[Rfam]
Rfam assigns this 62-nucleotide RNA sequence from a Prolixibacteraceae bacterium to the family "DUF805 RNA". The organism belongs to Prolixibacteraceae, within Bacteria. The base pairs follow the family's consensus structure, which is taken from published work. The family is grouped with related families in Rfam's "DUF805 clan". It scores 55 bits against the family's covariance model.
RNA sequence: ACAAUGUGGAGACCGACCACACAAACGGGGCGGAAUCGAAAAGCCAGAUGAGUAGAGAAACC
Numbered sequence: 001a002c003a004a005u006g007u008g009g010a011g012a013c014c015g016a017c018c019a020c021a022c023a024a025a026c027g028g029g030g031c032g033g034a035a036u037c038g039a040a041a042a043g044c045c046a047g048a049u050g051a052g053u054a055g056a057g058a059a060a061c062c
Stems, first nucleotide, its partner, number of pairs: 006020004029045003036056002
Dot-bracket structure: .....((((.......))))........(((....[[.....))).........]]......